[Rfam]
RNA sequence: GGAGAAAAAGAGCUAAGAGCUAGGGAAAAGGUGGAGCAUGAGAUGGAUCAGUCAACCAUAUAUAGAUGUUGAUGUUCCUCCCAUGCACUGCCUCUUCCCUGGCUCUCAUAUUAGUUCUUAAU
Numbered sequence: 001g002g003a004g005a006a007a008a009a010g011a012g013c014u015a016a017g018a019g020c021u022a023g024g025g026a027a028a029a030g031g032u033g034g035a036g037c038a039u040g041a042g043a044u045g046g047a048u049c050a051g052u053c054a055a056c057c058a059u060a061u062a063u064a065g066a067u068g069u070u071g072a073u074g075u076u077c078c079u080c081c082c083a084u085g086c087a088c089u090g091c092c093u094c095u096u097c098c099c100u101g102g103c104u105c106u107c108a109u110a111u112u113a114g115u116u117c118u119u120a121a122u
Stems, first nucleotide, its partner, number of pairs: 017105003021101007029093006036086005042081001046077002

The record is a 122-nucleotide sequence from Beta vulgaris, which matches "MIR408 microRNA precursor family" in Rfam. The family has 8 seed sequences and 299 matches in Rfam 15.1. Lineage of the source: Eukaryota > Mesangiospermae > Pentapetalae > Betoideae > Beta vulgaris.